[Rfam]
mir-8799 microRNA precursor family: a 90-nucleotide RNA from Canis lupus. The family is grouped with related families in Rfam's "mir-8791 microRNA precursor clan". The family has 7 seed sequences and 20,638 matches in Rfam 15.1. The source organism's lineage runs through Eukaryota, Euteleostomi, Mammalia, Eutheria and Canis lupus. A search with the family's covariance model found it, with a score of 84 bits.
RNA sequence: GGGGGGAGGCGGGAUCUUGGGCUGUGUCCCGGAACCCAGGGCUCCCGGGCUUGUGCUGUUGGAUUCGCGCACCCGGCCGCGCAGCCCCCU
Numbered sequence: 001g002g003g004g005g006g007a008g009g010c011g012g013g014a015u016c017u018u019g020g021g022c023u024g025u026g027u028c029c030c031g032g033a034a035c036c037c038a039g040g041g042c043u044c045c046c047g048g049g050c051u052u053g054u055g056c057u058g059u060u061g062g063a064u065u066c067g068c069g070c071a072c073c074c075g076g077c078c079g080c081g082c083a084g085c086c087c088c089c090u
Stems, first nucleotide, its partner, number of pairs: 001090006009082002012078002016076002019073002023069004027063003030058003034054002039051001041050003